[Rfam]
RNA sequence: GCACGACUCCCUUUACGACGGAUCGUCCGGCACGUACCUGCCGGUGAAGGAGACAGCA
Dot-bracket structure: ........((.((((...........((((((......))))))))))))........
RNA: msiK RNA
Organism: Streptomyces sp. AJS327